[Rfam]
RNA sequence: GUAAUGCCUCACGCCCGUGGGGUAGGACAGGUGUAAUGGGGGACACCUGUUCACACUAAAAGCGUCC
Dot-bracket structure: ....((((((((....))))))))((((((((((........))))))))))...............
Background:
Rfam assigns this 67-nucleotide RNA from Chlorobium phaeobacteroides to the family "Chlorobi-1 RNA". It is one of the family's seed sequences.